[Rfam]
RNA sequence: CUCAUUUUAGACAUGAACUGGUCCCUCAUAUCUAACAUAUCCAUCUGAUCACUUUGUCAGUUGCCUUUCCCAGUGGCAUGCUGAUCAUUAUAAGAUGGAAAAUGU
Numbered sequence: 001c002u003c004a005u006u007u008u009a010g011a012c013a014u015g016a017a018c019u020g021g022u023c024c025c026u027c028a029u030a031u032c033u034a035a036c037a038u039a040u041c042c043a044u045c046u047g048a049u050c051a052c053u054u055u056g057u058c059a060g061u062u063g064c065c066u067u068u069c070c071c072a073g074u075g076g077c078a079u080g081c082u083g084a085u086c087a088u089u090a091u092a093a094g095a096u097g098g099a100a101a102a103u104g105u
Base pairs, nucleotide, nucleotide: 040099041098042097043096044095045094056085057084058083059082060081061080
Background: A member of the RNA family "Small nucleolar RNA snoR99" from Gossypium mustelinum, 105 nucleotides long. Pairs were carried over by alignment from the consensus structure, which was predicted with WAR. Its family is annotated with nucleolus and RNA processing in the Gene Ontology.